SAM riboswitch aptamer (S box leader): a 105-nucleotide sequence from Chryseolinea serpens.
Taxonomically the source falls in Chryseolinea (Bacteria, Pseudomonadati, Cytophagales, Fulvivirgaceae).
RNA sequence: CAUUUAUAAAGAAGAGGGGAGAGAACAGGCUCUGCGAACCUCUAGCAACUUUCUGGAAAGAAUAAGUGCUACAUCCUGCCCGAAAACAAUAUGGGUAUAUAAAAU
Numbered sequence: 001c002a003u004u005u006a007u008a009a010a011g012a013a014g015a016g017g018g019g020a021g022a023g024a025a026c027a028g029g030c031u032c033u034g035c036g037a038a039c040c041u042c043u044a045g046c047a048a049c050u051u052u053c054u055g056g057a058a059a060g061a062a063u064a065a066g067u068g069c070u071a072c073a074u075c076c077u078g079c080c081c082g083a084a085a086a087c088a089a090u091a092u093g094g095g096u097a098u099a100u101a102a103a104a105u
Stems, first nucleotide, its partner, number of pairs: 003103006013043005021032003026078004044070004049066002051062004074097001079095004084090001